A member of the RNA family "ASpks TB sRNA" from Streptomyces sp. YIM 121038, 75 nucleotides long. It is annotated as an antisense RNA.

RNA sequence: CUUGAUCGAGCCGAGCCACAGCGGCUGGUCAGCGGGUCGGUCCUGGCCGUAGGUGGCGAGGACGGCCUGGGCCUC
Numbered sequence: 001c002u003u004g005a006u007c008g009a010g011c012c013g014a015g016c017c018a019c020a021g022c023g024g025c026u027g028g029u030c031a032g033c034g035g036g037u038c039g040g041u042c043c044u045g046g047c048c049g050u051a052g053g054u055g056g057c058g059a060g061g062a063c064g065g066c067c068u069g070g071g072c073c074u075c
Stems, first nucleotide, its partner, number of pairs: 014026004033069001038065001043060002047056003